The record is an 85-nucleotide RNA sequence, which matches "c-di-GMP-II-GAG riboswitch aptamer" in Rfam.
Gene Ontology terms of the family: regulation of gene expression and cyclic-di-GMP binding.
Rfam's curators put it in the seed alignment.
RNA sequence: CCGCCGGCGGGAGGCUCUGACACGCGGUCCAGAUACGUGCCGCCGGGACCGCGCCGAGCCACUGGCGAGACCGACCCGCGGGAUG
Numbered sequence: 001c002c003g004c005c006g007g008c009g010g011g012a013g014g015c016u017c018u019g020a021c022a023c024g025c026g027g028u029c030c031a032g033a034u035a036c037g038u039g040c041c042g043c044c045g046g047g048a049c050c051g052c053g054c055c056g057a058g059c060c061a062c063u064g065g066c067g068a069g070a071c072c073g074a075c076c077c078g079c080g081g082g083a084u085g
Stems, first nucleotide, its partner, number of pairs: 001085001004082002007079005013060003023053007039071001041067004

On this family, see Weinberg et al., Proc Natl Acad Sci U S A 2017: "Bioinformatic analysis of riboswitch structures uncovers variant classes with altered ligand specificity".